[Rfam]
RNA sequence: UGGGGCCUCCGCGGCCGCCCCGUGAGGCAUCAUUGCCCAAGCGCCGC
Numbered sequence: 001u002g003g004g005g006c007c008u009c010c011g012c013g014g015c016c017g018c019c020c021c022g023u024g025a026g027g028c029a030u031c032a033u034u035g036c037c038c039a040a041g042c043g044c045c046g047c
Stems, first nucleotide, its partner, number of pairs: 001022006011047005026037004
Dot-bracket structure: ((((((....[[[[[.))))))...((((....)))).....]]]]]
The family of this 47-nucleotide RNA is "chrB-b RNA". The family's RNA type in Rfam is cis-regulatory element. Rfam's curators put it in the seed alignment. Pairs were carried over by alignment from the consensus structure, which is taken from published work.